[Rfam]
RNA sequence: UACCGACAUCAGCGAUUCAUUCUGUGAACCUGCCCCGACCGCCAGAUAAGAGUGCAUCCCCAGAUCUUUCAUUUGCUGCUCGCCAAUCACCCGGGUAACGACGUUUUUGCUGUAGCCGUCCGCCAGCUGGCGCGCCUGCGAGGCCAGAUAGGCCGCAUUACAAAUAUUCGGCGGCAUAUUGCCGAGAUCUUUGGC
Numbered sequence: 001u002a003c004c005g006a007c008a009u010c011a012g013c014g015a016u017u018c019a020u021u022c023u024g025u026g027a028a029c030c031u032g033c034c035c036c037g038a039c040c041g042c043c044a045g046a047u048a049a050g051a052g053u054g055c056a057u058c059c060c061c062a063g064a065u066c067u068u069u070c071a072u073u074u075g076c077u078g079c080u081c082g083c084c085a086a087u088c089a090c091c092c093g094g095g096u097a098a099c100g101a102c103g104u105u106u107u108u109g110c111u112g113u114a115g116c117c118g119u120c121c122g123c124c125a126g127c128u129g130g131c132g133c134g135c136c137u138g139c140g141a142g143g144c145c146a147g148a149u150a151g152g153c154c155g156c157a158u159u160a161c162a163a164a165u166a167u168u169c170g171g172c173g174g175c176a177u178a179u180u181g182c183c184g185a186g187a188u189c190u191u192u193g194g195c
Stems, first nucleotide, its partner, number of pairs: 005189002014030001016028005035041001050059001062077002078135002081132005087126001092122005099112002102109002137162002140159002143156002167186006

Shown here is a 195-nucleotide sequence from Klebsiella sp. RIT-PI-d, a member of the family "Yersinia sRNA 276". A reference for the family is Nuss et al. (2015), "Transcriptomic profiling of Yersinia pseudotuberculosis reveals reprogramming of the Crp regulon by temperature and uncovers Crp as a master regulator of small RNAs", PLoS Genet. The family's consensus secondary structure was predicted with RNAfold. A search with the family's covariance model found it, with a score of 164 bits.